[Rfam]
RNA sequence: CAAAACAGAAGAGGAGCGUUAACUAGGUAGUAAGUCUAAGGAGCACCAACUCCAUUGAUGACUUAUGAGGGAGAUUAACGCCGAGACACGAUUCCUGUGCGUGAGGAUUAGUGUCGAUCAUUUGGCUGAAUCCAAAUGAUUGUCGCAGCUACCCCAUGAUGGGGCAAUUAUUAGCUAGCGGAGAGCUUCUGGUGAG
Numbered sequence: 001c002a003a004a005a006c007a008g009a010a011g012a013g014g015a016g017c018g019u020u021a022a023c024u025a026g027g028u029a030g031u032a033a034g035u036c037u038a039a040g041g042a043g044c045a046c047c048a049a050c051u052c053c054a055u056u057g058a059u060g061a062c063u064u065a066u067g068a069g070g071g072a073g074a075u076u077a078a079c080g081c082c083g084a085g086a087c088a089c090g091a092u093u094c095c096u097g098u099g100c101g102u103g104a105g106g107a108u109u110a111g112u113g114u115c116g117a118u119c120a121u122u123u124g125g126c127u128g129a130a131u132c133c134a135a136a137u138g139a140u141u142g143u144c145g146c147a148g149c150u151a152c153c154c155c156a157u158g159a160u161g162g163g164g165c166a167a168u169u170a171u172u173a174g175c176u177a178g179c180g181g182a183g184a185g186c187u188u189c190u191g192g193u194g195a196g
Base pairs, nucleotide, nucleotide: 006191007190008189009188010187011186016081017080018079019078020077021076022075024073030066031065032064033063034062035061036060085115086114087113088112089111091109093107094106095105096104116141117140118139119138120137121136122135123134124133125132143181144180145179146178147176148175149174150173151172
RNA: Lysine riboswitch aptamer
Organism: Parashewanella spongiae